Notes:
Shown here is a 547-nucleotide sequence from Drosophila navojoa, a member of the family "Bicoid 3'-UTR regulatory element". The match comes from Rfam's covariance-model search (188 bits). The family's RNA type in Rfam is cis-regulatory element. The organism belongs to mojavensis species complex, within Eukaryota. About the family: This family represents the core structure of the bicoid 3'-UTR and consists of domains II, III, IV and V which are known to be essential for correct transport and localisation of bicoid mRNA during oocyte and embryo differentiation.

RNA sequence: GUUAUAGCUGUUAAUGCAUCUUCAAUUUGUCAAUACUUUCUUGGAAGCGUCCUUUGCAAAAUGUUCAUUCAUCUCGUGUUCGUCUGGCAGGGCCUUUCCAAAAGCCCAGCAAUGCCCACCCAGAUCUACUUGAGAUAAUAUGGGCUUAAUUGAAGGUUUUGCAGAUGAAGCUUCCACAAAAAAUUUGCAAGUAGAGUUCGAACUCAUUUUAUAGCUUUGAUCAAGUGGCAUGGCUAACAAAAACUGUACUGAUCUAAAUGAAAAAUGUUUCUCUUGCUGAUAAUCGCAGGGCCGUCUGUAAUAAUUCUUCCUGCUAUUAUCAUCCAAAGAUCGAACGUUUAAACAAUAAUCAUUCAUCAGAAUAUUUUCAAAUCCCACUAUGCCACAGUUUUCAUGUGACAAUCAAACAUUCUACACGUGAGAAUUGUUAAAAAAUUGUUAAAAAUUACAUGAAAGACCUCGAUCACGGUUAUUAAAACAACACCUAGAAUUUGCUUGGAAAUUUUUUAGAUUUAUGAUGAAUUGAAUAUGUAUUGAAAAAUUUAAC
Numbered sequence: 001g002u003u004a005u006a007g008c009u010g011u012u013a014a015u016g017c018a019u020c021u022u023c024a025a026u027u028u029g030u031c032a033a034u035a036c037u038u039u040c041u042u043g044g045a046a047g048c049g050u051c052c053u054u055u056g057c058a059a060a061a062u063g064u065u066c067a068u069u070c071a072u073c074u075c076g077u078g079u080u081c082g083u084c085u086g087g088c089a090g091g092g093c094c095u096u097u098c099c100a101a102a103a104g105c106c107c108a109g110c111a112a113u114g115c116c117c118a119c120c121c122a123g124a125u126c127u128a129c130u131u132g133a134g135a136u137a138a139u140a141u142g143g144g145c146u147u148a149a150u151u152g153a154a155g156g157u158u159u160u161g162c163a164g165a166u167g168a169a170g171c172u173u174c175c176a177c178a179a180a181a182a183a184u185u186u187g188c189a190a191g192u193a194g195a196g197u198u199c200g201a202a203c204u205c206a207u208u209u210u211a212u213a214g215c216u217u218u219g220a221u222c223a224a225g226u227g228g229c230a231u232g233g234c235u236a237a238c239a240a241a242a243a244c245u246g247u248a249c250u251g252a253u254c255u256a257a258a259u260g261a262a263a264a265a266u267g268u269u270u271c272u273c274u275u276g277c278u279g280a281u282a283a284u285c286g287c288a289g290g291g292c293c294g295u296c297u298g299u300a301a302u303a304a305u306u307c308u309u310c311c312u313g314c315u316a317u318u319a320u321c322a323u324c325c326a327a328a329g330a331u332c333g334a335a336c337g338u339u340u341a342a343a344c345a346a347u348a349a350u351c352a353u354u355c356a357u358c359a360g361a362a363u364a365u366u367u368u369c370a371a372a373u374c375c376c377a378c379u380a381u382g383c384c385a386c387a388g389u390u391u392u393c394a395u396g397u398g399a400c401a402a403u404c405a406a407a408c409a410u411u412c413u414a415c416a417c418g419u420g421a422g423a424a425u426u427g428u429u430a431a432a433a434a435a436u437u438g439u440u441a442a443a444a445a446u447u448a449c450a451u452g453a454a455a456g457a458c459c460u461c462g463a464u465c466a467c468g469g470u471u472a473u474u475a476a477a478a479c480a481a482c483a484c485c486u487a488g489a490a491u492u493u494g495c496u497u498g499g500a501a502a503u504u505u506u507u508u509a510g511a512u513u514u515a516u517g518a519u520g521a522a523u524u525g526a527a528u529a530u531g532u533a534u535u536g537a538a539a540a541a542u543u544u545a546a547c
Stems, first nucleotide, its partner, number of pairs: 001547004006542001009539001012536006021527010047171002050168002053165001055163002058160005064154002071136006078129002082125001084123004091117002093114001096111001098109001195493002198490001201486001209478002212475001214470003220464003225386003229382005235377001242373001245370002256354002263340008272330004276324001278322001280320005388458001390457002393452003403434001407428002409425005